[Rfam]
RNA sequence: UUUGCCUCAAGGCAAACUAUGGGAAACCAUAGGGCGCAAAGCUACAGGGGCUUCACUGCCAGCCAGCUGCCAAA
Dot-bracket structure: ...........((...((((((....))))))...))..((((...(((((......)))..))))))......
Numbered sequence: 001u002u003u004g005c006c007u008c009a010a011g012g013c014a015a016a017c018u019a020u021g022g023g024a025a026a027c028c029a030u031a032g033g034g035c036g037c038a039a040a041g042c043u044a045c046a047g048g049g050g051c052u053u054c055a056c057u058g059c060c061a062g063c064c065a066g067c068u069g070c071c072a073a074a
Stems, first nucleotide, its partner, number of pairs: 012037002017032006040068004047064002049060003
Shown here is a 74-nucleotide RNA sequence, a member of the family "c-di-GMP-I riboswitch aptamer".